[Rfam]
RNA sequence: CGCGUUUUUCGCCCAGGCGGAGCUCGACCGCCGUCUGAAGUCCUGAGGGAAUUCGUCGACCAGCAUCGACAGGCCUACGGGGUCGAGUCGAUCUGCAAGGUGUUGCAGAUCGCCCCA
Numbered sequence: 001c002g003c004g005u006u007u008u009u010c011g012c013c014c015a016g017g018c019g020g021a022g023c024u025c026g027a028c029c030g031c032c033g034u035c036u037g038a039a040g041u042c043c044u045g046a047g048g049g050a051a052u053u054c055g056u057c058g059a060c061c062a063g064c065a066u067c068g069a070c071a072g073g074c075c076u077a078c079g080g081g082g083u084c085g086a087g088u089c090g091a092u093c094u095g096c097a098a099g100g101u102g103u104u105g106c107a108g109a110u111c112g113c114c115c116c117a
Stems, first nucleotide, its partner, number of pairs: 016032005079116004089112002092109007
RNA: ALIL pseudoknot